Bacterial small signal recognition particle RNA: a 100-nucleotide RNA sequence from Desulfobulbus oralis. The family's RNA type in Rfam is non-coding RNA gene. Rfam's curators write: The signal recognition particle (SRP) is a universally conserved ribonucleoprotein involved in the co-translational targeting of proteins to membranes. Its Rfam clan is "SRP clan". The family's consensus secondary structure is taken from published work.
[Rfam]
RNA sequence: AGCCGGGUCCUGUGCAAUAAAGACACGCAAACCCCGUCAGGUCCGGAAGGAAGCAGCGGUAGCGAAUUCCUCUUUAUGUGCGCAGGGUUGCCCGGCUAUC
Numbered sequence: 001a002g003c004c005g006g007g008u009c010c011u012g013u014g015c016a017a018u019a020a021a022g023a024c025a026c027g028c029a030a031a032c033c034c035c036g037u038c039a040g041g042u043c044c045g046g047a048a049g050g051a052a053g054c055a056g057c058g059g060u061a062g063c064g065a066a067u068u069c070c071u072c073u074u075u076a077u078g079u080g081c082g083c084a085g086g087g088u089u090g091c092c093c094g095g096c097u098a099u100c
Stems, first nucleotide, its partner, number of pairs: 004094005009086006015078001017077006023067001026064003034059004042051003